The record is a 131-nucleotide RNA from Tetrahymena elliotti, which matches "Tetrahymena snoRNA TtnuHACA6" in Rfam. Rfam links the family to the GO terms nucleolus and RNA processing. A reference for the family is Andersen and Nielsen (2012), "Experimental identification and analysis of macronuclear non-coding RNAs from the ciliate Tetrahymena thermophila", Nucleic Acids Res. It is one of the family's seed sequences. Pairs were carried over by alignment from the consensus structure, which was predicted with mfold. By type it is an H/ACA-box small nucleolar RNA.
[Rfam]
RNA sequence: CCUUGCAUCUUUUGCGACAGACUAUGUUUAUCUAUUAAGCAAAUAGUCUUACUAAUGAUGCUAUAGUAAAUAUCUCUAUCCGUAUCGGACCACUAAUAAAUAGAUGGUUUGAUUUAUUUGAGAUGAAAUCU
Numbered sequence: 001c002c003u004u005g006c007a008u009c010u011u012u013u014g015c016g017a018c019a020g021a022c023u024a025u026g027u028u029u030a031u032c033u034a035u036u037a038a039g040c041a042a043a044u045a046g047u048c049u050u051a052c053u054a055a056u057g058a059u060g061c062u063a064u065a066g067u068a069a070a071u072a073u074c075u076c077u078a079u080c081c082g083u084a085u086c087g088g089a090c091c092a093c094u095a096a097u098a099a100a101u102a103g104a105u106g107g108u109u110u111g112a113u114u115u116a117u118u119u120g121a122g123a124u125g126a127a128a129u130c131u
Base pairs, nucleotide, nucleotide: 004016005015006014007013019049020048021047022046023045026040027039028038029037030036050068051067052066053065054064057061071125072124073123074122075121076120084113085112086111087110088109089108090107091106